[Rfam]
RNA sequence: GGUGUAUGGAAUGAAGUUUGAUCCAAGAUCCAUCAAUCAUCUAUCUUUUUUAAGUCAUGAAUUAUGAUGAUAUUAAUGGAUCUCGGACCAGGCUUCAUUCCUCACACC
Dot-bracket structure: (((((..((((((..(((((...(.(........................................................).)...)))))..))))))..)))))
Numbered sequence: 001g002g003u004g005u006a007u008g009g010a011a012u013g014a015a016g017u018u019u020g021a022u023c024c025a026a027g028a029u030c031c032a033u034c035a036a037u038c039a040u041c042u043a044u045c046u047u048u049u050u051u052a053a054g055u056c057a058u059g060a061a062u063u064a065u066g067a068u069g070a071u072a073u074u075a076a077u078g079g080a081u082c083u084c085g086g087a088c089c090a091g092g093c094u095u096c097a098u099u100c101c102u103c104a105c106a107c108c
Stems, first nucleotide, its partner, number of pairs: 001108005008101006016093005024085001026083001